[Rfam]
RNA sequence: GAUAAGACAGGUGAGAAUCCUGUCCGCCGGAAGUCCAAGGGUUCCUGGGGAAGGUUCGUCCGCCCAGGGUAAGCCGGAGCCUAAGGUGAGGCCGAAAGGCGUAGCCGAUGGAGAAACAGGUUAAUAGUCCGUGCCACUGAUUAUGUCGAUUGACCUGAAGGGGAGACGCAGGAAGGUAGCUACGCGUGCUAGUGGAAUAGCACGUUCUUAGCAGCGAGGCCUGGGUGUAGGGAAAACCGCACCCGAUGCAGGUUAGCGGCUAGGAGGAGUGUCCGUAAGGAUGCGAAGGUAGUGAUCCUACACUGCCGAGAAAAACCUCGUCAGGGAGACAUAGUUAGUGUCCGUACCCGAAACCGACACAGGUGGACUGGUAGACAAACUACCGAGGCGCG
Numbered sequence: 001g002a003u004a005a006g007a008c009a010g011g012u013g014a015g016a017a018u019c020c021u022g023u024c025c026g027c028c029g030g031a032a033g034u035c036c037a038a039g040g041g042u043u044c045c046u047g048g049g050g051a052a053g054g055u056u057c058g059u060c061c062g063c064c065c066a067g068g069g070u071a072a073g074c075c076g077g078a079g080c081c082u083a084a085g086g087u088g089a090g091g092c093c094g095a096a097a098g099g100c101g102u103a104g105c106c107g108a109u110g111g112a113g114a115a116a117c118a119g120g121u122u123a124a125u126a127g128u129c130c131g132u133g134c135c136a137c138u139g140a141u142u143a144u145g146u147c148g149a150u151u152g153a154c155c156u157g158a159a160g161g162g163g164a165g166a167c168g169c170a171g172g173a174a175g176g177u178a179g180c181u182a183c184g185c186g187u188g189c190u191a192g193u194g195g196a197a198u199a200g201c202a203c204g205u206u207c208u209u210a211g212c213a214g215c216g217a218g219g220c221c222u223g224g225g226u227g228u229a230g231g232g233a234a235a236a237c238c239g240c241a242c243c244c245g246a247u248g249c250a251g252g253u254u255a256g257c258g259g260c261u262a263g264g265a266g267g268a269g270u271g272u273c274c275g276u277a278a279g280g281a282u283g284c285g286a287a288g289g290u291a292g293u294g295a296u297c298c299u300a301c302a303c304u305g306c307c308g309a310g311a312a313a314a315a316c317c318u319c320g321u322c323a324g325g326g327a328g329a330c331a332u333a334g335u336u337a338g339u340g341u342c343c344g345u346a347c348c349c350g351a352a353a354c355c356g357a358c359a360c361a362g363g364u365g366g367a368c369u370g371g372u373a374g375a376c377a378a379a380c381u382a383c384c385g386a387g388g389c390g391c392g
Stems, first nucleotide, its partner, number of pairs: 006024006025390004033368004039348002044068006053061002075344004080111002085106003089102001091100003116132002119130002135340011155324002160319004168306004174299003179293005184205006206265002211260002214257001218253001220251001222245007230238002269284005354363002370384004
RNA: Bacterial large subunit ribosomal RNA, nucleotides 1376 to 1767
Organism: Coprothermobacter proteolyticus